[Rfam]
RNA sequence: UGCCACAAAUUUCUUUGUGGCAUUACAGGCUGUUAUGCCACAAAGAAAUUUGUGGCAGA
Numbered sequence: 001u002g003c004c005a006c007a008a009a010u011u012u013c014u015u016u017g018u019g020g021c022a023u024u025a026c027a028g029g030c031u032g033u034u035a036u037g038c039c040a041c042a043a044a045g046a047a048a049u050u051u052g053u054g055g056c057a058g059a
Stems, first nucleotide, its partner, number of pairs: 001057010012046003016042007025033002
A member of the RNA family "mir-7583 microRNA precursor family" from Brassicogethes aeneus, 59 nucleotides long. It scores 50 bits against the family's covariance model.